[Rfam]
RNA sequence: CCGUCAACAAUAUCCUGGUGCUGAGUGAGUGGCACUCGGAGACUCCAGCAUCAGUGAUUUUGUUGAAGA
Number, nucleotide and partner (000 for none) at each position: 001c000002c000003g000004u000005c000006a064007a063008c062009a061010a060011u000012a058013u057014c056015c054016u053017g052018g051019u050020g049021c048022u047023g046024a000025g000026u000027g000028a000029g000030u000031g000032g000033c000034a000035c000036u000037c000038g000039g000040a000041g000042a000043c000044u000045c000046c023047a022048g021049c020050a019051u018052c017053a016054g015055u000056g014057a013058u012059u000060u010061u009062g008063u007064u006065g000066a000067a000068g000069a000